[Rfam]
RNA sequence: UGCAAAUGAUGUUUUUCUCAUGAUUGUGUACAUAGCCCUACUAUCAGGGUUUGCUGAAACUGUUUUAAAGAACUCUACUGAUGCAAUUAU
Number, nucleotide and partner (000 for none) at each position: 001u085002g084003c083004a082005a000006a000007u000008g000009a000010u000011g000012u000013u000014u000015u000016u000017c000018u000019c000020a000021u000022g000023a000024u000025u000026g000027u000028g000029u000030a000031c000032a000033u000034a000035g000036c000037c000038c000039u000040a000041c000042u000043a000044u000045c000046a000047g000048g000049g000050u000051u000052u000053g000054c000055u000056g000057a000058a000059a000060c000061u000062g000063u000064u000065u000066u000067a000068a000069a000070g000071a000072a000073c000074u000075c000076u000077a000078c000079u000080g000081a000082u004083g003084c002085a001086a000087u000088u000089a000090u000
RNA: Small nucleolar RNA SNORD35
Organism: Strongylocentrotus purpuratus